[Rfam]
RNA sequence: CAGAUCAUAUGACAAUAAUAGAGAGCACGCCUGUAUACAUCCACAUAUUUGCAUGAAUGGGAACCGGCGUGCUCUCUCUCAUUGUCAAUUGAUC
Numbered sequence: 001c002a003g004a005u006c007a008u009a010u011g012a013c014a015a016u017a018a019u020a021g022a023g024a025g026c027a028c029g030c031c032u033g034u035a036u037a038c039a040u041c042c043a044c045a046u047a048u049u050u051g052c053a054u055g056a057a058u059g060g061g062a063a064c065c066g067g068c069g070u071g072c073u074c075u076c077u078c079u080c081a082u083u084g085u086c087a088a089u090u091g092a093u094c
Base pairs, nucleotide, nucleotide: 010087011086012085013084014083016081020077021076023074025072026071027070028069029068030067031066033064034063

Shown here is a 94-nucleotide sequence from Durio zibethinus, a member of the family "MIR535 microRNA precursor family". The match comes from Rfam's covariance-model search (68 bits). A reference for the family is Zeng et al. (2010), "Conservation and divergence of microRNAs and their functions in Euphorbiaceous plants", Nucleic Acids Res. Rfam 15.1 lists 544 matches to the family in 108 species. Gene Ontology terms of the family: miRNA-mediated post-transcriptional gene silencing and RISC complex.